RNA sequence: AAGUGAAAAGGUGAUGGAGCUCACCGAAACUGCCUUUCAGGCUAAUAGCUCCUACAAUAUC
Numbered sequence: 001a002a003g004u005g006a007a008a009a010g011g012u013g014a015u016g017g018a019g020c021u022c023a024c025c026g027a028a029a030c031u032g033c034c035u036u037u038c039a040g041g042c043u044a045a046u047a048g049c050u051c052c053u054a055c056a057a058u059a060u061c
Stems, first nucleotide, its partner, number of pairs: 010025004016052006032042003
The family of this 61-nucleotide RNA from Fervidicola ferrireducens is "Fluoride riboswitch aptamer (crcB RNA motif)".